[Rfam]
RNA sequence: UUGCUGGUAACGGCAGGGUCUGAAGGAAGCGAUAGGAGGUGAGCGGCACAUAGCGCAAGCGAACCUGAUUCGGCGUAUCAGGAGGGUAAGCGUCCUAAAUAGCGCGAAGCCCGAUACCUGGUCAGUCCUGAUACGUGAUUGAGGAUGUGGUCGCUCACAGGGGGUCCGC
Numbered sequence: 001u002u003g004c005u006g007g008u009a010a011c012g013g014c015a016g017g018g019u020c021u022g023a024a025g026g027a028a029g030c031g032a033u034a035g036g037a038g039g040u041g042a043g044c045g046g047c048a049c050a051u052a053g054c055g056c057a058a059g060c061g062a063a064c065c066u067g068a069u070u071c072g073g074c075g076u077a078u079c080a081g082g083a084g085g086g087u088a089a090g091c092g093u094c095c096u097a098a099a100u101a102g103c104g105c106g107a108a109g110c111c112c113g114a115u116a117c118c119u120g121g122u123c124a125g126u127c128c129u130g131a132u133a134c135g136u137g138a139u140u141g142a143g144g145a146u147g148u149g150g151u152c153g154c155u156c157a158c159a160g161g162g163g164g165u166c167c168g169c
Base pairs, nucleotide, nucleotide: 001016002015003014004013005012006011029169030168031167041156042155043154044153045152046151047149048148049147050146051145064144065143066142068140073136074135075134077132078131079130080129081128082127083126084112085111086110087109090105091104092103093102
RNA: Group II catalytic intron D1-D4-3
Organism: Desulfolithobacter dissulfuricans